Overview:
Rfam assigns this 133-nucleotide RNA from Piliocolobus tephrosceles to the family "U4 spliceosomal RNA". The literature on the family includes a 1997 paper in Nucleic Acids Res by Zwieb, "The uRNA database".
RNA sequence: AGCUUUGCACAGUGGUGGUAUUAUAGCCAAUGAGGUUUAUCUGAGGUGUGAUUAUUGCUAAUUGAAAACUUUUCCCAACACUCCACCAUGACAACUUGCAAUAUAGUAGGCAUUGGCAAAAAAAAAAAAAAAU
Numbered sequence: 001a002g003c004u005u006u007g008c009a010c011a012g013u014g015g016u017g018g019u020a021u022u023a024u025a026g027c028c029a030a031u032g033a034g035g036u037u038u039a040u041c042u043g044a045g046g047u048g049u050g051a052u053u054a055u056u057g058c059u060a061a062u063u064g065a066a067a068a069c070u071u072u073u074c075c076c077a078a079c080a081c082u083c084c085a086c087c088a089u090g091a092c093a094a095c096u097u098g099c100a101a102u103a104u105a106g107u108a109g110g111c112a113u114u115g116g117c118a119a120a121a122a123a124a125a126a127a128a129a130a131a132a133u
Base pairs, nucleotide, nucleotide: 020052021051022050023049024048026047027046028045034042035041086116087115088113089112090111092109094107095106096105126133
Dot-bracket structure: ...................(((((.(((.....((.....))..)))))))).................................(((((.(.(((........))).).))).)).........(......)